[Rfam]
RNA: Bacteroidales small SRP
RNA sequence: UGUCGCCGGGUAAGUCCUGUACGACCAGCUCCUGCUGAACUCCUCCAGGGCCUGACGGCAGCAAAGGUAGGCGGUCGAAGCGGUGCGAUGCAGUAAGCUUACCCACUU
Numbered sequence: 001u002g003u004c005g006c007c008g009g010g011u012a013a014g015u016c017c018u019g020u021a022c023g024a025c026c027a028g029c030u031c032c033u034g035c036u037g038a039a040c041u042c043c044u045c046c047a048g049g050g051c052c053u054g055a056c057g058g059c060a061g062c063a064a065a066g067g068u069a070g071g072c073g074g075u076c077g078a079a080g081c082g083g084u085g086c087g088a089u090g091c092a093g094u095a096a097g098c099u100u101a102c103c104c105a106c107u108u
Stems, first nucleotide, its partner, number of pairs: 008104008017093005022087002024084002